Shown here is a 72-nucleotide RNA sequence from Rhinolophus ferrumequinum, a member of the family "Small nucleolar RNA SNORD113/SNORD114 family".
The organism belongs to Rhinolophus, within Eukaryota.
Rfam 15.1 lists 5,721 matches to the family in 142 species.
Rfam describes the family as follows. The imprinted human domain at 14q32 contains two clusters of tandemly repeated small nucleolar RNAs named 14q(I) and 14q(II) snoRNAs.
[Rfam]
RNA sequence: UAGAACAGUGAUGAGUACUCUGAGAUAUAUGAAUCAAAGAUUUUGAGUAAACGUUGUAACUUUGAGGUCUGU
Number, nucleotide and partner (000 for none) at each position: 001u000002a070003g069004a068005a000006c066007a000008g000009u000010g000011a000012u000013g000014a000015g000016u000017a000018c000019u000020c000021u000022g000023a000024g000025a000026u000027a000028u000029a000030u000031g000032a000033a000034u000035c000036a000037a000038a000039g000040a000041u000042u000043u000044u000045g000046a000047g000048u000049a000050a000051a000052c000053g000054u000055u000056g000057u000058a000059a000060c000061u000062u000063u000064g000065a000066g006067g000068u004069c003070u002071g000072u000